[Rfam]
RNA: Metazoan signal recognition particle RNA
Organism: Lottia gigantea
Nucleotides: 298
Stems, first nucleotide, its partner, number of pairs: 001044003004023006028041003046296003050292004058285005066275007077268005084261006092254004097249001102247007109237002112235005118228002121225006127166004132161004138155001140153005167173002175218005186209003193202003
Number, partner (000 for none) and nucleotide at each position: 001044g002043c003042u004023g005022g006021g007020a008019g009018u010000u011000g012000u013000g014000g015000c016000g017000u018009g019008c020007u021006c022005c023004u024000g025000u026000a027000a028041u029040c030039c031000a032000g033000c034000u035000a036000c037000u038000u039030g040029g041028a042003g043002g044001c045000u046296u047295g048294g049000u050292g051291u052290g053289g054000a055000g056000a057000a058285c059284g060283g061282u062281u063000u064000g065000a066275g067274g068273g069272c070271g071270g072269g073000g074000g075000u076000u077268c078267u079266g080265c081264u082000c083000u084261c085260a086259g087258g088257u089256g090000c091000g092254c093253u094252a095251u096000g097249u098000c099000g100000a101000u102247c103246g104245g105244g106243u107242g108241u109237c110236c111000g112235c113234g114233c115232u116231a117000a118228g119227c120000c121225c122224g123223g124222c125221a126220u127166c128165a129164a130163u131000a132161u133160g134159g135158u136000c137000u138155c139000a140153c141152u142151c143150g144149g145000g146000g147000a148000g149144c150143c151142g152141a153140g154000a155138g156000u157000u158135a159134c160133c161132a162000g163130g164129u165128u166127g167173u168172c169000u170000a171000a172168g173167g174000a175218g176217g177216g178215a179214c180000g181000a182000a183000u184000c185000g186209g187208c188207c189000c190000a191000g192000g193202g194201c195200g196000g197000a198000a199000a200195c201194g202193c203000a204000g205000c206000a207188g208187g209186c210000a211000a212000a213000a214179g215178u216177c217176c218175c219000c220126g221125u222124g223123u224122c225121g226000c227119g228118c229000a230000g231116u232115a233114g234113u235112g236110g237109g238000a239000u240000c241108g242107c243106a244105c245104c246103c247102g248000u249097g250000a251095a252094u253093a254092g255000g256089c257088a258087u259086c260085u261084g262000u263000u264081g265080g266079u267078a268077g269072c270071c271070u272069g273068u274067c275066c276000g277000a278000u279000a280000u281062a282061a283060u284059u285058g286000g287000a288000c289053c290052c291051a292050u293000u294048c295047c296046a297000u298000u